Shown here is a 71-nucleotide RNA from Sphingobium sp. CAP-1, a member of the family "Makes More Granules Regulator RNA (mmgR)". Its family is annotated with response to nitrogen compound, protein binding and DNA-templated transcription, termination in the Gene Ontology. Rfam classes the family as a small RNA. A search with the family's covariance model found it, with a score of 46 bits. Clan: suhB sRNA clan. The base pairs follow the family's consensus structure. About the family: SuhB later renamed mmgR (makes more granules regulator) was a putative non-coding RNA found multiple times in the Agrobacterium tumefaciens genome and related alpha-proteobacteria. Other non-coding RNAs uncovered in the same analysis include: speF, ybhL, metA, and serC.Several studies inSinorhizobium meliloti showed that suhB element is indeed a non-coding RNA:firstly it was detected on Northern blot and called Sm8RNA, secondly in an RNAseq study referred to as SmelC689.The mutant phenotype's (strain lacking the small RNA) cytoplasm contains higher content of polyhydroxybutyrate (PBH)storage granules than wild type strain. The organism belongs to Sphingobium, within Bacteria. The family has 87 seed sequences and 1,791 matches in Rfam 15.1.

RNA sequence: GGAACUCGCCUUUCAGGCAUCCUCUCCUAAAACUUCCAGCCGCCUUCACAGGCGGCUUUUUUUUGCCUUUU
Numbered sequence: 001g002g003a004a005c006u007c008g009c010c011u012u013u014c015a016g017g018c019a020u021c022c023u024c025u026c027c028u029a030a031a032a033c034u035u036c037c038a039g040c041c042g043c044c045u046u047c048a049c050a051g052g053c054g055g056c057u058u059u060u061u062u063u064u065g066c067c068u069u070u071u
Stems, first nucleotide, its partner, number of pairs: 008018004039056007